This 69-nucleotide RNA from Saccharothrix variisporea belongs to the Rfam family "ASpks TB sRNA". A reference for the family is Arnvig and Young (2009), "Identification of small RNAs in Mycobacterium tuberculosis", Mol Microbiol. The source organism's lineage runs through Bacteria, Bacillati, Actinomycetota, Actinomycetes and Saccharothrix.
RNA sequence: CUUCAACGACCCCAGCCACAGCGGUUCGGCGCGGUCCUGGCCGUAGGUGGCGAGAAUCGCCUGGGCCUC
Numbered sequence: 001c002u003u004c005a006a007c008g009a010c011c012c013c014a015g016c017c018a019c020a021g022c023g024g025u026u027c028g029g030c031g032c033g034g035u036c037c038u039g040g041c042c043g044u045a046g047g048u049g050g051c052g053a054g055a056a057u058c059g060c061c062u063g064g065g066c067c068u069c
Stems, first nucleotide, its partner, number of pairs: 014026004027063001032059002037054002041050003
The family's RNA type in Rfam is antisense RNA.